[Rfam]
RNA sequence: GGGGUUGUAGCUCAAUGGAAGAGCAGGAGUCUUCCAGACUCCAGGCUGGGGGUUCAAGUCCUCCCAAUCUCC
Numbered sequence: 001g002g003g004g005u006u007g008u009a010g011c012u013c014a015a016u017g018g019a020a021g022a023g024c025a026g027g028a029g030u031c032u033u034c035c036a037g038a039c040u041c042c043a044g045g046c047u048g049g050g051g052g053u054u055c056a057a058g059u060c061c062u063c064c065c066a067a068u069c070u071c072c
Base pairs, nucleotide, nucleotide: 001071002070003069004068005067006066007065010024011023012022013021026042027041028040029039030038048064049063050062051061052060
RNA: tRNA
Organism: Tolypothrix bouteillei